[Rfam]
RNA sequence: UAUUUUGGGUUGGAUCGAGCUUGGACAAGCAUAAAGUAUGUUAAUAUCAUGUUUAGGUCCAACCCGACUCG
Numbered sequence: 001u002a003u004u005u006u007g008g009g010u011u012g013g014a015u016c017g018a019g020c021u022u023g024g025a026c027a028a029g030c031a032u033a034a035a036g037u038a039u040g041u042u043a044a045u046a047u048c049a050u051g052u053u054u055a056g057g058u059c060c061a062a063c064c065c066g067a068c069u070c071g
Base pairs, nucleotide, nucleotide: 005067006066007065008064009063010062011061012060013059014058015057016056017054018053019052020051024048025047028042029041030040031039032038033037
Dot-bracket structure: ....((((((((((((((((...((..((((((...))))))....))..)))).))))))))))))....